[Rfam]
RNA sequence: UUGUGGCGAGAGUGAUGAGUCAAAUGAAGUGGAAGGGAUAAAAUCCCUUGUGAUCUUAACUCCUUUAUGCUUAUUGAUAUUCUGACUUGCCACUU
Numbered sequence: 001u002u003g004u005g006g007c008g009a010g011a012g013u014g015a016u017g018a019g020u021c022a023a024a025u026g027a028a029g030u031g032g033a034a035g036g037g038a039u040a041a042a043a044u045c046c047c048u049u050g051u052g053a054u055c056u057u058a059a060c061u062c063c064u065u066u067a068u069g070c071u072u073a074u075u076g077a078u079a080u081u082c083u084g085a086c087u088u089g090c091c092a093c094u095u
Stems, first nucleotide, its partner, number of pairs: 003093008
RNA: Small nucleolar RNA Z266